[Rfam]
RNA sequence: UGGAUAGCAUCGAAAGAGCUAUACCCCUAAGGGGAUUAUUGAAAUUGAAAAGAAAUCUGCUCUGAGCCGACGGGACCGAGACAGAAAA
Numbered sequence: 001u002g003g004a005u006a007g008c009a010u011c012g013a014a015a016g017a018g019c020u021a022u023a024c025c026c027c028u029a030a031g032g033g034g035a036u037u038a039u040u041g042a043a044a045u046u047g048a049a050a051a052g053a054a055a056u057c058u059g060c061u062c063u064g065a066g067c068c069g070a071c072g073g074g075a076c077c078g079a080g081a082c083a084g085a086a087a088a
Base pairs, nucleotide, nucleotide: 002025003024004022005021006020007019008018010017011016057084058083059082060080061079062078064076067074068073
RNA: pan motif